The record is a 54-nucleotide RNA from Conger conger, which matches "UnaL2 LINE 3' element" in Rfam.
The organism belongs to Conger, within Eukaryota.
The eel long interspersed element (LINE) UnaL2 and its partner short interspersed element (SINE) share a conserved 3' tail containing a stem-loop that is critical for their retrotransposition.
Rfam classes the family as a cis-regulatory element.

RNA sequence: UCUAAAAUCAACUGUGCGUCGCUCUGGAUAAGAGCGUCUGCCAAAUGCCAAUAA
Dot-bracket structure: ............((((...((((((.....))))))..))).)...........

Rfam links the family to the GO term transposition, RNA-mediated.